Rfam assigns this 296-nucleotide sequence from Hymenobacter cellulosilyticus to the family "5' ureB small RNA". Its family is annotated with negative regulation of gene expression in the Gene Ontology. On this family, see Wen et al., J Bacteriol 2013: "Helicobacter pylori 5'ureB-sRNA, a cis-encoded antisense small RNA, negatively regulates ureAB expression by transcription termination".
[Rfam]
RNA sequence: CUUCGGGAAUCUGCUGGGGGCUGAUGAAGUGGAUGUGGCAGUCGAUGCCGCCGGCGGUGAGAAUCUGGCCUUCCCCGGCUAUGACUUCAGUUGUUACGCCCACGGUCAUGCCGGGCGUCACGCCGGGCAUAAUGUGGGGGUUGCCAGCCUUGCCGAUGCCGCUGAUGCGCCCGUUCUUGAUGCCAAUGUCGGCCUUGUAAAUACCGGUGUAGUCGAGCACCAGGGCGUUGGUAAUAACCAAGUCCAAAGCUUCGUCCUGACUGAUGCCGGCGGCCUGGCCCAUACCGUCGCGCAAG
Numbered sequence: 001c002u003u004c005g006g007g008a009a010u011c012u013g014c015u016g017g018g019g020g021c022u023g024a025u026g027a028a029g030u031g032g033a034u035g036u037g038g039c040a041g042u043c044g045a046u047g048c049c050g051c052c053g054g055c056g057g058u059g060a061g062a063a064u065c066u067g068g069c070c071u072u073c074c075c076c077g078g079c080u081a082u083g084a085c086u087u088c089a090g091u092u093g094u095u096a097c098g099c100c101c102a103c104g105g106u107c108a109u110g111c112c113g114g115g116c117g118u119c120a121c122g123c124c125g126g127g128c129a130u131a132a133u134g135u136g137g138g139g140g141u142u143g144c145c146a147g148c149c150u151u152g153c154c155g156a157u158g159c160c161g162c163u164g165a166u167g168c169g170c171c172c173g174u175u176c177u178u179g180a181u182g183c184c185a186a187u188g189u190c191g192g193c194c195u196u197g198u199a200a201a202u203a204c205c206g207g208u209g210u211a212g213u214c215g216a217g218c219a220c221c222a223g224g225g226c227g228u229u230g231g232u233a234a235u236a237a238c239c240a241a242g243u244c245c246a247a248a249g250c251u252u253c254g255u256c257c258u259g260a261c262u263g264a265u266g267c268c269g270g271c272g273g274c275c276u277g278g279c280c281c282a283u284a285c286c287g288u289c290g291c292g293c294a295a296g
Stems, first nucleotide, its partner, number of pairs: 001296003006291001009288001011164001013162002016160002018076003023071001030053003034050002037048001057069002077154002081150001083148001090144002093141003097136003106131001108130005114124002169279001171278003177273003181269002183266001192226006207214001229263003234258001237255001240252003